Background
Rfam assigns this 303-nucleotide sequence from Penicillium bovifimosum to the family "A. fumigatus sRNA Afu_309". The family's consensus secondary structure was predicted with WAR. It is annotated as a small RNA. Lineage of the source: Eukaryota > Dikarya > leotiomyceta > Eurotiales > Penicillium.

RNA sequence: ACCUAUAUACGGAUCUGUGUUUGGAUUUCCUGCCCGUAGAUUCCAGUCUGACUGGUUUCUACGUGGUGGUUGAGAGCUGAACAGUUCGACGAGCUUGGAGCCAUCUUUUUUUGCGUGGAUGGCCUUUACGGUUUCCGGUCGACAGAUCUCAGAUUAAUUGUCCGCGCCUUGAACGCAGGUCUUGAGCUCCCACUGGUGAGCUCGGCCUGGCUGCUUGGUGUUGGGCGGCGUCAUAUUUCAUGUCUCUUUGCCGACUGGCCGUUGGCCACUGAGGUUAGGGAAUAACCAUGACUGCCAACAUCU
Dot-bracket structure: ..........((((((((((((((.(((((((((((((((..((.((...)).))..)))))).)))))..)))).)))))).......(((.(..((.(((..................))).))..........).)))))))))))..........(.(...(((..(......((((..((((((((...)).))))))))))......)..)))).)....((((((((........(((((..(((....((((...)))).....))).)))))......))))).))).......